Notes:
Shown here is a 268-nucleotide RNA from Hymenochirus boettgeri, a member of the family "RNase MRP". From the family's description: RNase MRP is an enzymatically active ribonucleoprotein with two distinct roles in eukaryotes. In mitochondria it plays a direct role in the initiation of mitochondrial DNA replication. In the nucleus it is involved in precursor rRNA processing, where it cleaves the internal transcribed spacer 1 between 18S and 5.8S rRNAs. Despite distinct functions, RNase MRP has been shown to be evolutionarily related to RNase P. Like eukaryotic RNase P, RNase MRP is not catalytically active without associated protein subunits. Rfam classes the family as a ribozyme. Taxonomically the source falls in Hymenochirus (Eukaryota, Metazoa, Amphibia, Batrachia).
[Rfam]
RNA sequence: ACGCAUUCUGAAGACCUGACGUCUAGGCCACGCACUGAGGACGUGUUUCUCUCGCAACGCCUAGGGGAAAGUCCCCGGACCUCGGGUAGAGAGUGCCGUGCGCCGCAAAGGUGCGCUAUAAUCCCGCCCUGCCGUCCAUAUACCCGCCAAGAAGCGAUCACCGCCGAGCGGCUUGGACUAGGGCGGGACCUCUCGUCAGUCCAUAUAGUCAUUCAGGUAGCGGGUGAUGUGAUCUCGCAAACACAACGGGGCUCAUUCUCAGAAUGCU
Numbered sequence: 001a002c003g004c005a006u007u008c009u010g011a012a013g014a015c016c017u018g019a020c021g022u023c024u025a026g027g028c029c030a031c032g033c034a035c036u037g038a039g040g041a042c043g044u045g046u047u048u049c050u051c052u053c054g055c056a057a058c059g060c061c062u063a064g065g066g067g068a069a070a071g072u073c074c075c076c077g078g079a080c081c082u083c084g085g086g087u088a089g090a091g092a093g094u095g096c097c098g099u100g101c102g103c104c105g106c107a108a109a110g111g112u113g114c115g116c117u118a119u120a121a122u123c124c125c126g127c128c129c130u131g132c133c134g135u136c137c138a139u140a141u142a143c144c145c146g147c148c149a150a151g152a153a154g155c156g157a158u159c160a161c162c163g164c165c166g167a168g169c170g171g172c173u174u175g176g177a178c179u180a181g182g183g184c185g186g187g188a189c190c191u192c193u194c195g196u197c198a199g200u201c202c203a204u205a206u207a208g209u210c211a212u213u214c215a216g217g218u219a220g221c222g223g224g225u226g227a228u229g230u231g232a233u234c235u236c237g238c239a240a241a242c243a244c245a246a247c248g249g250g251g252c253u254c255a256u257u258c259u260c261a262g263a264a265u266g267c268u
Base pairs, nucleotide, nucleotide: 003267004266005265006264007263008262009261010260011259014218015217016216017215018214019213022065023064024063025062026061027060028059037051038050039049040048041047070253071252073251074250075249076248085097086096087095088094098116099115100114101113102112103111119188125185126184127183128182129181130180134178135177136176137175144171145170146169147168154164155163156162220238221237222236223235224234